[Rfam]
RNA sequence: GUAUACACGGAGUGGCCAGAUGAUGAUGAGCUCUGAAUGCAUAAUCAUCUGGCCACUCAGUGUAUAU
Dot-bracket structure: ...(((((.((((((((.((((((.(((...........))).)))))).)))))))).)))))...

mir-9256 microRNA precursor family: a 67-nucleotide sequence from Pipistrellus kuhlii. Lineage of the source: Eukaryota > Gnathostomata > Dipnotetrapodomorpha > Boreoeutheria > Pipistrellus. The family has 8 seed sequences and 31,772 matches in Rfam 15.1.